[Rfam]
RNA sequence: AAAUCAUUUGAUGAAAUCAAAACUGCAACAAUAUGAUGGGCAAAUUGUCCAUGAUUCCUUGUAUUUAAGUCUCUGAUGAUU
Numbered sequence: 001a002a003a004u005c006a007u008u009u010g011a012u013g014a015a016a017u018c019a020a021a022a023c024u025g026c027a028a029c030a031a032u033a034u035g036a037u038g039g040g041c042a043a044a045u046u047g048u049c050c051a052u053g054a055u056u057c058c059u060u061g062u063a064u065u066u067a068a069g070u071c072u073c074u075g076a077u078g079a080u081u
Stems, first nucleotide, its partner, number of pairs: 001081002004079003038050005